[Rfam]
RNA sequence: AGGCCUGAAGAGAGAAGCAGGGUCUUAUCUAUAGUCUCCAUGGCAGCUGUUGAUUAGCCCUUGCUUCUCUCUUUCUCUUUG
Numbered sequence: 001a002g003g004c005c006u007g008a009a010g011a012g013a014g015a016a017g018c019a020g021g022g023u024c025u026u027a028u029c030u031a032u033a034g035u036c037u038c039c040a041u042g043g044c045a046g047c048u049g050u051u052g053a054u055u056a057g058c059c060c061u062u063g064c065u066u067c068u069c070u071c072u073u074u075c076u077c078u079u080u081g
Stems, first nucleotide, its partner, number of pairs: 008073013022059001024057002027054003032049004
About this RNA
Rfam assigns this 81-nucleotide sequence from Pipistrellus kuhlii to the family "mir-574 microRNA precursor family". On this family, see Lui et al., Cancer Res 2007: "Patterns of known and novel small RNAs in human cervical cancer".